A member of the RNA family "Bacterial small subunit ribosomal RNA" from an uncultured bacterium, 354 nucleotides of a longer RNA.
RNA sequence: GGCUUAAAGCGCACGUAGGCUGCGUCGUAAGUGUCAGGUGAAAUCCCACGGCUCACCCGUGGAACUGCCUGGCAUACUGCGAUGCUCGAGUGUGGUAGGGGAGAGCGGAACUCCUGGUGGAGCGGUGAAAUGCGUAGAUAUCAGGAGGAACACCGGUGGCGAAGGCGGCUCUCUGGUCCACAACUGACGCUGAGGUGCGAAAGCUAGGGGAGCAAACGGGAUUAGAUACCCCGGUAGUCUUAGCUGUAAACGAUGGGCACUAGCUUGGGGUCUCCCUGUGUGAUCCCAGGUGAAGCAAAAGUGAUAAGUGCCCCGCCUGGGGAGUAUGGUCGCAAGGCUGAAACUCAAAGGAAU
Numbered sequence: 001g002g003c004u005u006a007a008a009g010c011g012c013a014c015g016u017a018g019g020c021u022g023c024g025u026c027g028u029a030a031g032u033g034u035c036a037g038g039u040g041a042a043a044u045c046c047c048a049c050g051g052c053u054c055a056c057c058c059g060u061g062g063a064a065c066u067g068c069c070u071g072g073c074a075u076a077c078u079g080c081g082a083u084g085c086u087c088g089a090g091u092g093u094g095g096u097a098g099g100g101g102a103g104a105g106c107g108g109a110a111c112u113c114c115u116g117g118u119g120g121a122g123c124g125g126u127g128a129a130a131u132g133c134g135u136a137g138a139u140a141u142c143a144g145g146a147g148g149a150a151c152a153c154c155g156g157u158g159g160c161g162a163a164g165g166c167g168g169c170u171c172u173c174u175g176g177u178c179c180a181c182a183a184c185u186g187a188c189g190c191u192g193a194g195g196u197g198c199g200a201a202a203g204c205u206a207g208g209g210g211a212g213c214a215a216a217c218g219g220g221a222u223u224a225g226a227u228a229c230c231c232c233g234g235u236a237g238u239c240u241u242a243g244c245u246g247u248a249a250a251c252g253a254u255g256g257g258c259a260c261u262a263g264c265u266u267g268g269g270g271u272c273u274c275c276c277u278g279u280g281u282g283a284u285c286c287c288a289g290g291u292g293a294a295g296c297a298a299a300a301g302u303g304a305u306a307a308g309u310g311c312c313c314c315g316c317c318u319g320g321g322g323a324g325u326a327u328g329g330u331c332g333c334a335a336g337g338c339u340g341a342a343a344c345u346c347a348a349a350g351g352a353a354u
Stems, first nucleotide, its partner, number of pairs: 001317003009314001011198004016192001018191003022085007030078002032074009046062006089185003092181004100174007107151001111147008122133003159166002203244006212238002217233004255313006263291010274280001295302002319346003328339004